[Rfam]
RNA sequence: AAUAUCUCGAGUCUCGUGCCAGAUUUUGAUUUCGUGCCGAAUUGUUUUAAAAACAAAUACUGCCGGAAUUAACACUAGAGUCGAAAUUUAGGCACGAAAUCAAUAUCUGGCACGAGACUCGAGACCU
Numbered sequence: 001a002a003u004a005u006c007u008c009g010a011g012u013c014u015c016g017u018g019c020c021a022g023a024u025u026u027u028g029a030u031u032u033c034g035u036g037c038c039g040a041a042u043u044g045u046u047u048u049a050a051a052a053a054c055a056a057a058u059a060c061u062g063c064c065g066g067a068a069u070u071a072a073c074a075c076u077a078g079a080g081u082c083g084a085a086a087u088u089u090a091g092g093c094a095c096g097a098a099a100u101c102a103a104u105a106u107c108u109g110g111c112a113c114g115a116g117a118c119u120c121g122a123g124a125c126c127u
Stems, first nucleotide, its partner, number of pairs: 008121004015114009025103001028101011